[Rfam]
Description
TPP riboswitch aptamer (THI element): a 99-nucleotide RNA sequence from Clostridium tetanomorphum. It scores 64 bits against the family's covariance model. The family's consensus secondary structure is taken from published work.
RNA sequence: UUUUAUUUGCAGGGGAACUUAUUUAGUUGAGAAAGAUUAACAUCUGACCCUUAGAACCUGUUAGCUAAUACUAACGUAGGGAGCCAAAUCACCUACGCU
Numbered sequence: 001u002u003u004u005a006u007u008u009g010c011a012g013g014g015g016a017a018c019u020u021a022u023u024u025a026g027u028u029g030a031g032a033a034a035g036a037u038u039a040a041c042a043u044c045u046g047a048c049c050c051u052u053a054g055a056a057c058c059u060g061u062u063a064g065c066u067a068a069u070a071c072u073a074a075c076g077u078a079g080g081g082a083g084c085c086a087a088a089u090c091a092c093c094u095a096c097g098c099u
Stems, first nucleotide, its partner, number of pairs: 006087002009084002011051004017027003034045004057080004061074004